RNA: Small nucleolar RNA SNORA8
Organism: Eulacestoma nigropectus
RNA sequence: AGUAUUACACUACCUGCACCCAGCAGCCUUCUCCUGGUGGGAUGUUCGAAAAGCAGUGCUACAGCAGUGCCGUGUUUGGCAAUCUUGGUUUUCCUCCUGCUGUGUCCGUUAAACCUGGUAUUUUUGCUGAAACAGUC
Numbered sequence: 001a002g003u004a005u006u007a008c009a010c011u012a013c014c015u016g017c018a019c020c021c022a023g024c025a026g027c028c029u030u031c032u033c034c035u036g037g038u039g040g041g042a043u044g045u046u047c048g049a050a051a052a053g054c055a056g057u058g059c060u061a062c063a064g065c066a067g068u069g070c071c072g073u074g075u076u077u078g079g080c081a082a083u084c085u086u087g088g089u090u091u092u093c094c095u096c097c098u099g100c101u102g103u104g105u106c107c108g109u110u111a112a113a114c115c116u117g118g119u120a121u122u123u124u125u126g127c128u129g130a131a132a133c134a135g136u137c
Stems, first nucleotide, its partner, number of pairs: 002059005014053002016045003020041002022038001024036003062126003066122003070117001072115001078106004
Dot-bracket structure: .(((((.......(((((.(((.(((.......))).).)).)))......)).)))))..(((.(((.(.(.....((((.....................))))........).)..))).)))...........